This 202-nucleotide sequence from Anopheles stephensi belongs to the Rfam family "drz-agam-2-2 ribozyme". On this family, see Webb et al., Science 2009: "Widespread occurrence of self-cleaving ribozymes". The family's consensus secondary structure is taken from published work.

RNA sequence: GUGUGCACGUGUUCUGUUAAUGGGGUAGGAUUCGAGACUCCUUUCGGGGUUACACAGGCUCUCCUACCCAACUCCUAUUCCGUCACGUCCUCGUCGUACAGAGUGGUAACUUACCCCCCCCCCCCCCACAUAUCCAAGCUUGGGUACAUGGGCCUGUCCUAACCCCUUAGGCGGAUGGUGGAGCAAGGCUCAACAGGAGGGG
Numbered sequence: 001g002u003g004u005g006c007a008c009g010u011g012u013u014c015u016g017u018u019a020a021u022g023g024g025g026u027a028g029g030a031u032u033c034g035a036g037a038c039u040c041c042u043u044u045c046g047g048g049g050u051u052a053c054a055c056a057g058g059c060u061c062u063c064c065u066a067c068c069c070a071a072c073u074c075c076u077a078u079u080c081c082g083u084c085a086c087g088u089c090c091u092c093g094u095c096g097u098a099c100a101g102a103g104u105g106g107u108a109a110c111u112u113a114c115c116c117c118c119c120c121c122c123c124c125c126c127c128a129c130a131u132a133u134c135c136a137a138g139c140u141u142g143g144g145u146a147c148a149u150g151g152g153c154c155u156g157u158c159c160u161a162a163c164c165c166c167u168u169a170g171g172c173g174g175a176u177g178g179u180g181g182a183g184c185a186a187g188g189c190u191c192a193a194c195a196g197g198a199g200g201g202g
Stems, first nucleotide, its partner, number of pairs: 011104007023069008032058002073202004078198002081196001085097003089106002110187003114183001116181002119178002132176004140162005164171002